[Rfam]
RNA sequence: GUACGAUGAUGGUUGCAUAGUUCAGCAGAUGCUCUGUGACGAACAAGUUUUAUUAGCUGAGUUACCU
Numbered sequence: 001g002u003a004c005g006a007u008g009a010u011g012g013u014u015g016c017a018u019a020g021u022u023c024a025g026c027a028g029a030u031g032c033u034c035u036g037u038g039a040c041g042a043a044c045a046a047g048u049u050u051u052a053u054u055a056g057c058u059g060a061g062u063u064a065c066c067u
Stems, first nucleotide, its partner, number of pairs: 001065003006037003013028004042054002045051002
RNA: Small nucleolar RNA SNORD77